[Rfam]
RNA sequence: CCAGAGGGCCGGGCGGCCGCGGCGUGGCGGGUAACCGCCACGGCGAGGAAAGUCCGGGCUCCACGAAAUAACGGUGCCGGUUAACGACCGGCUGGAGUGAUCCAAGGGACAGUGCAACAGAAAGCAGGUCGCUACAGCUUCGGCUAAGCGAAAUUGAAAGGGUGCGGUAAGAGCGCACCGCGUCUGCGGCAACGCAAGGCGGCACGGUAAACCCCACCGGGAGCAAGACCGAAUAGGGGCGGCGCGCGGCUUGACCGCUAGGCCUGUUUCGGCCGAGACCGUCCGGGUUGGUUGCUUGAGGAGCGGAGCAAUCCGUUCCCUAGAGGAAUGGUCGCCUAUCCUUGGAAACAGGGUGGACAGAACCCGGCUUACAGGCCCUCUGGCAUU
Numbered sequence: 001c002c003a004g005a006g007g008g009c010c011g012g013g014c015g016g017c018c019g020c021g022g023c024g025u026g027g028c029g030g031g032u033a034a035c036c037g038c039c040a041c042g043g044c045g046a047g048g049a050a051a052g053u054c055c056g057g058g059c060u061c062c063a064c065g066a067a068a069u070a071a072c073g074g075u076g077c078c079g080g081u082u083a084a085c086g087a088c089c090g091g092c093u094g095g096a097g098u099g100a101u102c103c104a105a106g107g108g109a110c111a112g113u114g115c116a117a118c119a120g121a122a123a124g125c126a127g128g129u130c131g132c133u134a135c136a137g138c139u140u141c142g143g144c145u146a147a148g149c150g151a152a153a154u155u156g157a158a159a160g161g162g163u164g165c166g167g168u169a170a171g172a173g174c175g176c177a178c179c180g181c182g183u184c185u186g187c188g189g190c191a192a193c194g195c196a197a198g199g200c201g202g203c204a205c206g207g208u209a210a211a212c213c214c215c216a217c218c219g220g221g222a223g224c225a226a227g228a229c230c231g232a233a234u235a236g237g238g239g240c241g242g243c244g245c246g247c248g249g250c251u252u253g254a255c256c257g258c259u260a261g262g263c264c265u266g267u268u269u270c271g272g273c274c275g276a277g278a279c280c281g282u283c284c285g286g287g288u289u290g291g292u293u294g295c296u297u298g299a300g301g302a303g304c305g306g307a308g309c310a311a312u313c314c315g316u317u318c319c320c321u322a323g324a325g326g327a328a329u330g331g332u333c334g335c336c337u338a339u340c341c342u343u344g345g346a347a348a349c350a351g352g353g354u355g356g357a358c359a360g361a362a363c364c365c366g367g368c369u370u371a372c373a374g375g376c377c378c379u380c381u382g383g384c385a386u387u
Base pairs, nucleotide, nucleotide: 001383002382003381004380005379006378007377008376009375010374011372012336013335014334015333016332017331018330020045021044023042024041025040026039027038028037050370051369052368054367055366056365057364058363059223060222061221062220067269068268072219073218074217075216076215077091078090079089080088081087092106093104094103095102096101107214108213112212113211114208115207129151130150131149132148133147136145137144138143161179162178163177164176165175166174180203181201182200183199184198185197186195187194188193227293228292229291230290237284238283239282240281241280242279261274262273263272264271300319301318302317303316304315305314306313307312
Dot-bracket structure: ((((((((((((((((((.((.((((((........)))))).))....[[[.[[[[[((((....[[...((((((((((.....)))))(((((....)))).)((...((((.............(((((..(((....))).))))).........((((((.......))))))(((((((((....))).))))).)...))..)))))))))))))...((((......((((((..................((((...]].))))....)))))).....))))......((((((((....))))))))..........)))))))..........................]]]]]]]].).))))))))))....